[Rfam]
RNA: Eukaryotic large subunit ribosomal RNA, nucleotides 931 to 1422
Organism: Zymoseptoria ardabiliae
RNA sequence: CCUACCGAAGUUUCCCUUAGGAUAGUAGUAACGUUUUUAGUUUUAUAAGGUAAAGCGAAUAAUUAGAGGCCUUAGGGUUAAAACAACCUUAACCUAUUCUUAAACUUUAAAUAUAUAAGAAGUCCUUAUUACUUAGUUAAACGUAGACAUUUAAAUGUAUCGUUACUAGUAGGCUAUUUUUAGUAAGUAGAACUAGCGAUAUAGGAUAAACCGAACGUAAGGUUAAGGUACCGGAAUAUACGCUUAUUAGAUACUAUAAAAGGUAUUAGUUUAUCUAGAUAGUAGGACGGUAGCUAUAGAAGUCGGAAUCCGCUAAGGAGUAUAUAAUAACUUACCUACCGAAUAAACUAGCCCUAAAAAUAGAUAGCGCUUAAGCGUACUACCUAUACCUCGCCGCUAGGGUAGAAACGAUGCCCUAGCGAGUAGGUAGGUAUAGAGGUCCGUAACGAAGCCUUAGGGGUAACCCCGGGUCGAACGGCCUCUAGUACAGAU
Numbered sequence: 001c002c003u004a005c006c007g008a009a010g011u012u013u014c015c016c017u018u019a020g021g022a023u024a025g026u027a028g029u030a031a032c033g034u035u036u037u038u039a040g041u042u043u044u045a046u047a048a049g050g051u052a053a054a055g056c057g058a059a060u061a062a063u064u065a066g067a068g069g070c071c072u073u074a075g076g077g078u079u080a081a082a083a084c085a086a087c088c089u090u091a092a093c094c095u096a097u098u099c100u101u102a103a104a105c106u107u108u109a110a111a112u113a114u115a116u117a118a119g120a121a122g123u124c125c126u127u128a129u130u131a132c133u134u135a136g137u138u139a140a141a142c143g144u145a146g147a148c149a150u151u152u153a154a155a156u157g158u159a160u161c162g163u164u165a166c167u168a169g170u171a172g173g174c175u176a177u178u179u180u181u182a183g184u185a186a187g188u189a190g191a192a193c194u195a196g197c198g199a200u201a202u203a204g205g206a207u208a209a210a211c212c213g214a215a216c217g218u219a220a221g222g223u224u225a226a227g228g229u230a231c232c233g234g235a236a237u238a239u240a241c242g243c244u245u246a247u248u249a250g251a252u253a254c255u256a257u258a259a260a261a262g263g264u265a266u267u268a269g270u271u272u273a274u275c276u277a278g279a280u281a282g283u284a285g286g287a288c289g290g291u292a293g294c295u296a297u298a299g300a301a302g303u304c305g306g307a308a309u310c311c312g313c314u315a316a317g318g319a320g321u322a323u324a325u326a327a328u329a330a331c332u333u334a335c336c337u338a339c340c341g342a343a344u345a346a347a348c349u350a351g352c353c354c355u356a357a358a359a360a361u362a363g364a365u366a367g368c369g370c371u372u373a374a375g376c377g378u379a380c381u382a383c384c385u386a387u388a389c390c391u392c393g394c395c396g397c398u399a400g401g402g403u404a405g406a407a408a409c410g411a412u413g414c415c416c417u418a419g420c421g422a423g424u425a426g427g428u429a430g431g432u433a434u435a436g437a438g439g440u441c442c443g444u445a446a447c448g449a450a451g452c453c454u455u456a457g458g459g460g461u462a463a464c465c466c467c468g469g470g471u472c473g474a475a476c477g478g479c480c481u482c483u484a485g486u487a488c489a490g491a492u
Stems, first nucleotide, its partner, number of pairs: 001431006011024001013022003027167007041120007053108001054106002060102003065097001067095003072092006079085001122148003127143001129141002173197004178192005202213001204211001217394002220391002223388001227384003236381001241377003261355003266351009282339005288312003294306002313317001318333001323330001395421009432487001434484008443476002451471002457466003
Dot-bracket structure: ((((((....(.(((....))).)..(((((((.......(((((((.....(((....(((..(.(((..((((((.(.....).))))))))).)..)))..)).).....))))))).(((..(.((.........)).)..)))............))))))).....((((.(((((.....))))).))))....(.(......).)...((.((.(...(((......(....(((.................(((..(((((((((.......(((((.(((...((.........))...)))(...)(....(......)..).)))))...))))))))).)))...................)))...))))...).)).))(((((((((.........)))))))))....))))))(.((((((((.((......((....(((....)))...))...))))))))))..).....